[Rfam]
RNA sequence: GCUGGUUUAGCUCAGUGGGUUGAGCGUGGUGCUUGAAACACCAAGGUCACGGGUUCAAUUCCCGUUCGGUU
Numbered sequence: 001g002c003u004g005g006u007u008u009a010g011c012u013c014a015g016u017g018g019g020u021u022g023a024g025c026g027u028g029g030u031g032c033u034u035g036a037a038a039c040a041c042c043a044a045g046g047u048c049a050c051g052g053g054u055u056c057a058a059u060u061c062c063c064g065u066u067c068g069g070u071u
Stems, first nucleotide, its partner, number of pairs: 001070005010025004027043005049065005
The record is a 71-nucleotide RNA from Trogon melanurus, which matches "tRNA" in Rfam.
The base pairs follow the family's consensus structure, which is taken from published work.
It scores 46 bits against the family's covariance model.